[Rfam]
RNA sequence: UAGCGCUGAUGAGCUGUGAUUGUGUUCUGACCUGGUAUUGCUGUUCCCCCUGGGAAUAACUCUGACCAGGGUCUGAGGACUUAAUCUUCUCUCUGAGCAC
Numbered sequence: 001u002a003g004c005g006c007u008g009a010u011g012a013g014c015u016g017u018g019a020u021u022g023u024g025u026u027c028u029g030a031c032c033u034g035g036u037a038u039u040g041c042u043g044u045u046c047c048c049c050c051u052g053g054g055a056a057u058a059a060c061u062c063u064g065a066c067c068a069g070g071g072u073c074u075g076a077g078g079a080c081u082u083a084a085u086c087u088u089c090u091c092u093c094u095g096a097g098c099a100c
Stems, first nucleotide, its partner, number of pairs: 001099001003098002040060001042058002